[Rfam]
RNA sequence: UGGCGUCCAAUGUGGGGCAGGGAUAUGGGGGAAUUCACGAGGGAAGAGGCGUUUAAUUGUUUGGCUGAACAAAGCAGAAGUCAGUUCAAGGAAGAUCUCCGCGGGAGCCUGCCGCUCUUAAAGGUACAGUAAUGCCUAACUAUGAGACAAGAAUUAAGCAUAAAGUUUUUGUUAAGCAAUUAAAAGAAGCUUUAAAGACACGGGGAGUAAAGGUUAAGAGUAAUGAUCUUUUUAAGUUUUCUGACCUUAUUAAGGACACCUGUCCAU
Numbered sequence: 001u002g003g004c005g006u007c008c009a010a011u012g013u014g015g016g017g018c019a020g021g022g023a024u025a026u027g028g029g030g031g032a033a034u035u036c037a038c039g040a041g042g043g044a045a046g047a048g049g050c051g052u053u054u055a056a057u058u059g060u061u062u063g064g065c066u067g068a069a070c071a072a073a074g075c076a077g078a079a080g081u082c083a084g085u086u087c088a089a090g091g092a093a094g095a096u097c098u099c100c101g102c103g104g105g106a107g108c109c110u111g112c113c114g115c116u117c118u119u120a121a122a123g124g125u126a127c128a129g130u131a132a133u134g135c136c137u138a139a140c141u142a143u144g145a146g147a148c149a150a151g152a153a154u155u156a157a158g159c160a161u162a163a164a165g166u167u168u169u170u171g172u173u174a175a176g177c178a179a180u181u182a183a184a185a186g187a188a189g190c191u192u193u194a195a196a197g198a199c200a201c202g203g204g205g206a207g208u209a210a211a212g213g214u215u216a217a218g219a220g221u222a223a224u225g226a227u228c229u230u231u232u233u234a235a236g237u238u239u240u241c242u243g244a245c246c247u248u249a250u251u252a253a254g255g256a257c258a259c260c261u262g263u264c265c266a267u
Stems, first nucleotide, its partner, number of pairs: 006031003012026003036048001038046001085124002095119001101115004130150001133147001135146001137144002155194003158190002201243008211229006252267001254265004
This 267-nucleotide RNA from Sciurus vulgaris belongs to the Rfam family "Mason-Pfizer monkey virus packaging signal".
Gene Ontology term of the family: viral genome packaging.
By type it is a cis-regulatory element.
This family represents a group of sequences that are related to the Mason-Pfizer monkey virus (MPMV) packaging signal.
The match comes from Rfam's covariance-model search (156 bits).
Rfam 15.1 lists 2,921 matches to the family in 53 species.